[Rfam]
RNA sequence: GGGCAGGGCGUUUAGGGUUCCACCGCCAUACGGCGGGUUCGGUCCGAGAAAUGCCACCCGGCGGGCAAACUCCCGCAGGGCACACGGCGGGGCAAAAUCCCGGGAGAC
Numbered sequence: 001g002g003g004c005a006g007g008g009c010g011u012u013u014a015g016g017g018u019u020c021c022a023c024c025g026c027c028a029u030a031c032g033g034c035g036g037g038u039u040c041g042g043u044c045c046g047a048g049a050a051a052u053g054c055c056a057c058c059c060g061g062c063g064g065g066c067a068a069a070c071u072c073c074c075g076c077a078g079g080g081c082a083c084a085c086g087g088c089g090g091g092g093c094a095a096a097a098u099c100c101c102g103g104g105a106g107a108c
Stems, first nucleotide, its partner, number of pairs: 007055006015045002020042002022039001023036005057080003061076005083103001085106001089101003
RNA: Guanidine-I riboswitch aptamer
Organism: Sagittula stellata